Ribosomal protein L20 leader: a 122-nucleotide sequence from Ornithinibacillus halotolerans. The source organism's lineage runs through Bacteria, Bacillota, Bacilli, Caryophanales and Ornithinibacillus. Its family is annotated with regulation of gene expression in the Gene Ontology. The match comes from Rfam's covariance-model search (67 bits).
[Rfam]
RNA sequence: GAUGACAAGUAGAGGCACCCGCUUCUCACCUGCACAACGCUGUUAAGUAGUUGGCUGGUUCACAUCUUUUGUAAACUAGAGGACGUGUGGGUGCAUUUGUGCGCUCACAUUUUUUUGUUUAA
Number, nucleotide and partner (000 for none) at each position: 001g000002a000003u000004g000005a000006c000007a000008a000009g000010u000011a026012g025013a024014g023015g022016c021017a000018c000019c000020c000021g016022c015023u014024u013025c012026u011027c000028a059029c058030c057031u000032g000033c000034a000035c000036a052037a051038c050039g048040c047041u000042g000043u000044u000045a000046a000047g040048u039049a000050g038051u037052u036053g000054g000055c000056u000057g030058g029059u028060u000061c000062a000063c000064a000065u000066c000067u000068u000069u000070u000071g000072u000073a000074a000075a000076c000077u000078a000079g000080a000081g000082g000083a000084c000085g000086u109087g108088u107089g106090g105091g104092u103093g102094c101095a100096u000097u000098u000099g000100u095101g094102c093103g092104c091105u090106c089107a088108c087109a086110u000111u000112u000113u000114u000115u000116u000117g000118u000119u000120u000121a000122a000